[Rfam]
RNA: Bacterial RNase P class A
Organism: Rhodoferax lacus
RNA sequence: GAAGCCCACCAGACCACCGCUGGUGCAAUUCUGGAAACAGAGCACUGGAGGAACGUCCGGACUGCACAGGGCAGCGUAGCAGUUAACAACUGUCCACCGACAAGGUUUGCAUGCAAAUGCAGGCUCCUAAGGUGAGGAUUAGAGCAACAGAGACGAGUCGAUGGAACAACCCCAAGGGUGUUCUAUGCGUGUAGCGCGGCGCAAGCCGUGCCCCGGGUAACCGGGUGCGCAUAGCCACCCGACGGGCGAAGCCCGUCGGGUGAAACGGGCAAUCUCUACGCGCAGCAAUACCAAGUAGGCACACGUUGACGGGGCCCCCGGAGUGUGCGGGUAGGUAGCAUUGAGCCGUCCAGGUGACUGGCGGCCCAGAUUAAUGGUGGUCACGUGAGGGGAAACCCUCAUGCACAGAAUCCGGCUUAUCGGUGGGCUUCACAC
Numbered sequence: 001g002a003a004g005c006c007c008a009c010c011a012g013a014c015c016a017c018c019g020c021u022g023g024u025g026c027a028a029u030u031c032u033g034g035a036a037a038c039a040g041a042g043c044a045c046u047g048g049a050g051g052a053a054c055g056u057c058c059g060g061a062c063u064g065c066a067c068a069g070g071g072c073a074g075c076g077u078a079g080c081a082g083u084u085a086a087c088a089a090c091u092g093u094c095c096a097c098c099g100a101c102a103a104g105g106u107u108u109g110c111a112u113g114c115a116a117a118u119g120c121a122g123g124c125u126c127c128u129a130a131g132g133u134g135a136g137g138a139u140u141a142g143a144g145c146a147a148c149a150g151a152g153a154c155g156a157g158u159c160g161a162u163g164g165a166a167c168a169a170c171c172c173c174a175a176g177g178g179u180g181u182u183c184u185a186u187g188c189g190u191g192u193a194g195c196g197c198g199g200c201g202c203a204a205g206c207c208g209u210g211c212c213c214c215g216g217g218u219a220a221c222c223g224g225g226u227g228c229g230c231a232u233a234g235c236c237a238c239c240c241g242a243c244g245g246g247c248g249a250a251g252c253c254c255g256u257c258g259g260g261u262g263a264a265a266c267g268g269g270c271a272a273u274c275u276c277u278a279c280g281c282g283c284a285g286c287a288a289u290a291c292c293a294a295g296u297a298g299g300c301a302c303a304c305g306u307u308g309a310c311g312g313g314g315c316c317c318c319c320g321g322a323g324u325g326u327g328c329g330g331g332u333a334g335g336u337a338g339c340a341u342u343g344a345g346c347c348g349u350c351c352a353g354g355u356g357a358c359u360g361g362c363g364g365c366c367c368a369g370a371u372u373a374a375u376g377g378u379g380g381u382c383a384c385g386u387g388a389g390g391g392g393a394a395a396c397c398c399u400c401a402u403g404c405a406c407a408g409a410a411u412c413c414g415g416c417u418u419a420u421c422g423g424u425g426g427g428c429u430u431c432a433c434a435c
Stems, first nucleotide, its partner, number of pairs: 001431010011420001012382007020048007053418001055416001057415005062285004069317004074281005079093005094136001095134004137276002142274002144270002163184006170177002196238001198236003239260001240258008289337004299328006310320003345365004350361004